[Rfam]
RNA sequence: AUAUAAGCAAAAUUCACUUUUUAGAUUCAUUCAUUUAAUGAUGUAUGUGGUUCAUAAUAUAGACCACAUACGUCAUUAAAUGAAUGAACUUAAAAAGUGAAUUUUGGUUAUAU
Numbered sequence: 001a002u003a004u005a006a007g008c009a010a011a012a013u014u015c016a017c018u019u020u021u022u023a024g025a026u027u028c029a030u031u032c033a034u035u036u037a038a039u040g041a042u043g044u045a046u047g048u049g050g051u052u053c054a055u056a057a058u059a060u061a062g063a064c065c066a067c068a069u070a071c072g073u074c075a076u077u078a079a080a081u082g083a084a085u086g087a088a089c090u091u092a093a094a095a096a097g098u099g100a101a102u103u104u105u106g107g108u109u110a111u112a113u
Stems, first nucleotide, its partner, number of pairs: 001113006008106005014100011026088018048066004
The record is a 113-nucleotide sequence from Medicago truncatula, which matches "MIR2593 microRNA precursor family" in Rfam. NCBI's taxonomy places the organism under Eukaryota, Mesangiospermae, Papilionoideae, Hologalegina, Medicago. Pairs were carried over by alignment from the consensus structure, which was predicted with RNAalifold.